[Rfam]
RNA sequence: CCGUUCUCAACGGGGUGCCCACUCCCGCCGCCCGCCGCGACCGGAGUCAGCUGAGAGAAGACCCGCCGAACCUGAUCCGGUUAAUACCGGCGAAGGGAUUUGAGAGUGCGCUUCUG
Number, nucleotide and partner (000 for none) at each position: 001c000002c000003g000004u000005u000006c104007u103008c102009a101010a100011c065012g064013g063014g062015g000016u059017g051018c050019c000020c000021a047022c046023u045024c044025c043026c000027g000028c000029c000030g000031c000032c000033c000034g000035c000036c000037g000038c000039g000040a000041c000042c000043g025044g024045a023046g022047u021048c000049a000050g018051c017052u000053g000054a000055g000056a000057g000058a000059a016060g000061a000062c014063c013064c012065g011066c000067c000068g000069a000070a000071c096072c095073u094074g000075a000076u000077c090078c089079g088080g087081u000082u000083a000084a000085u000086a000087c080088c079089g078090g077091c000092g000093a000094a073095g072096g071097g000098a000099u000100u010101u009102g008103a007104g006105a000106g000107u000108g000109c000110g000111c000112u000113u000114c000115u000116g000
This 116-nucleotide RNA sequence from Candidatus Sodalis pierantonii belongs to the Rfam family "TPP riboswitch aptamer (THI element)". It scores 65 bits against the family's covariance model.